[Rfam]
RNA sequence: CCCAACGCUUCGCAUUGGGCUGAAUUAUUUCGCCCUUUCAGGGCU
Numbered sequence: 001c002c003c004a005a006c007g008c009u010u011c012g013c014a015u016u017g018g019g020c021u022g023a024a025u026u027a028u029u030u031c032g033c034c035c036u037u038u039c040a041g042g043g044c045u
Base pairs, nucleotide, nucleotide: 001019002018003017004016005015007013008012032044033043034042035041036040